The record is a 129-nucleotide sequence from Takifugu rubripes, which matches "U4atac minor spliceosomal RNA" in Rfam. On this family, see Davila Lopez et al., Nucleic Acids Res 2008: "Computational screen for spliceosomal RNA genes aids in defining the phylogenetic distribution of major and minor spliceosomal components". The family is grouped with related families in Rfam's "U4 clan". By type it is a spliceosomal small nuclear RNA. U4atac is an essential component of the minor U12-type spliceosome complex which is required for removal of the rarer class of eukaryotic introns (AT-AC, U12-type).
RNA sequence: GCUUUCCUUGUCAUGGGGUGGUUGGGAAACUCAAUGAACGUAUAGUGAGAGCUUCCCUGCUAACACCAUAAUCGACACACACACGCGCCACCCGGACCUUGAGUCCGGACCACGGCGCAAUUUUUGGAA
Numbered sequence: 001g002c003u004u005u006c007c008u009u010g011u012c013a014u015g016g017g018g019u020g021g022u023u024g025g026g027a028a029a030c031u032c033a034a035u036g037a038a039c040g041u042a043u044a045g046u047g048a049g050a051g052c053u054u055c056c057c058u059g060c061u062a063a064c065a066c067c068a069u070a071a072u073c074g075a076c077a078c079a080c081a082c083a084c085g086c087g088c089c090a091c092c093c094g095g096a097c098c099u100u101g102a103g104u105c106c107g108g109a110c111c112a113c114g115g116c117g118c119a120a121u122u123u124u125u126g127g128a129a
Base pairs, nucleotide, nucleotide: 006018007017008016009015020061021060022059024056025055026054028053030051031050032049038046039045085118086117087116088115089114092108093107094106095105096104097103